[Rfam]
RNA sequence: CAAGCAUGAACGCUGCUAUUUUCCGCUUCUUUUUUUACUUUAGCGCCUGACUCUGGAGACUUCGCGCGUAAGAAAAGAAACGAAAAGUACGCUGAAGGCCUCCUUUAUGGAGGCCUUUUUUUU
Numbered sequence: 001c002a003a004g005c006a007u008g009a010a011c012g013c014u015g016c017u018a019u020u021u022u023c024c025g026c027u028u029c030u031u032u033u034u035u036u037a038c039u040u041u042a043g044c045g046c047c048u049g050a051c052u053c054u055g056g057a058g059a060c061u062u063c064g065c066g067c068g069u070a071a072g073a074a075a076a077g078a079a080a081c082g083a084a085a086a087g088u089a090c091g092c093u094g095a096a097g098g099c100c101u102c103c104u105u106u107a108u109g110g111a112g113g114c115c116u117u118u119u120u121u122u123u
Stems, first nucleotide, its partner, number of pairs: 015092002017089002020086003024082002027079007035071004041055003056065001058063001095117009
The family of this 123-nucleotide RNA from Tenebrionibacter intestinalis is "Phenylalanine leader peptide". Its family is annotated with cellular amino acid metabolic process in the Gene Ontology. On this family, see Zurawski et al., Proc Natl Acad Sci U S A 1978: "Nucleotide sequence of the leader region of the phenylalanine operon of Escherichia coli". Rfam 15.1 lists 379 matches to the family in 290 species. NCBI's taxonomy places the organism under Bacteria, Pseudomonadati, Gammaproteobacteria, Enterobacteriaceae, Tenebrionibacter. The family's RNA type in Rfam is cis-regulatory leader.